[Rfam]
RNA sequence: CCGUGGCCCGGUUCAAGUAAUCCAGGAUAGGCGCUGAGCGCCCGGCCUGUCCUGGGUCACUUGGUCCGGGAGGCGG
Numbered sequence: 001c002c003g004u005g006g007c008c009c010g011g012u013u014c015a016a017g018u019a020a021u022c023c024a025g026g027a028u029a030g031g032c033g034c035u036g037a038g039c040g041c042c043c044g045g046c047c048u049g050u051c052c053u054g055g056g057u058c059a060c061u062u063g064g065u066c067c068g069g070g071a072g073g074c075g076g
Base pairs, nucleotide, nucleotide: 002075003074004073007070008069009068010067011066014063015062016061017060018059020057021056022055024053025052026051027050028049029048030047031046032045
A member of the RNA family "mir-26 microRNA precursor family" from Anser cygnoides, 76 nucleotides long.
A reference for the family is Lagos-Quintana et al. (2001), "Identification of novel genes coding for small expressed RNAs", Science.
The organism belongs to Anser, within Eukaryota.
Gene Ontology terms of the family: RISC complex and miRNA-mediated post-transcriptional gene silencing.
A search with the family's covariance model found it, with a score of 65 bits.
Pairs were carried over by alignment from the consensus structure, which was predicted with RNAalifold.